[Rfam]
RNA sequence: GGGCGGUGAUGACCCAGAUUUCUCGAUGCUGACCUGGCCCCAAAGUGGGCUCAGGGCACCGUGCUGACACACUGAAUUUGUGCGUGUCUGAGUCCC
Numbered sequence: 001g002g003g004c005g006g007u008g009a010u011g012a013c014c015c016a017g018a019u020u021u022c023u024c025g026a027u028g029c030u031g032a033c034c035u036g037g038c039c040c041c042a043a044a045g046u047g048g049g050c051u052c053a054g055g056g057c058a059c060c061g062u063g064c065u066g067a068c069a070c071a072c073u074g075a076a077u078u079u080g081u082g083c084g085u086g087u088c089u090g091a092g093u094c095c096c
Stems, first nucleotide, its partner, number of pairs: 001095004
RNA: small nucleolar RNA snoR126